[Rfam]
RNA sequence: ACCCCUCCCUCCCUGCUUGUGGGUGUACGCUACAGAGAAGCCUACAAGCGCUGGAUGGGGGGU
Numbered sequence: 001a002c003c004c005c006u007c008c009c010u011c012c013c014u015g016c017u018u019g020u021g022g023g024u025g026u027a028c029g030c031u032a033c034a035g036a037g038a039a040g041c042c043u044a045c046a047a048g049c050g051c052u053g054g055a056u057g058g059g060g061g062g063u
Stems, first nucleotide, its partner, number of pairs: 001063004007059003012054002015051001018046002022042003025033002
Dot-bracket structure: ((((..(((..((.(..((..(((((.....))......)))..))....).))..)))))))
The record is a 63-nucleotide RNA sequence from Anguilla anguilla, which matches "MAT2A 3'UTR stem loop A" in Rfam. The family's consensus secondary structure is taken from published work. On this family, see Parker et al., Genome Res 2011: "New families of human regulatory RNA structures identified by comparative analysis of vertebrate genomes". The source organism's lineage runs through Eukaryota, Eumetazoa, Vertebrata, Actinopterygii and Anguilla. Rfam classes the family as a cis-regulatory element. The family has 20 seed sequences and 595 matches in Rfam 15.1. A search with the family's covariance model found it, with a score of 44 bits.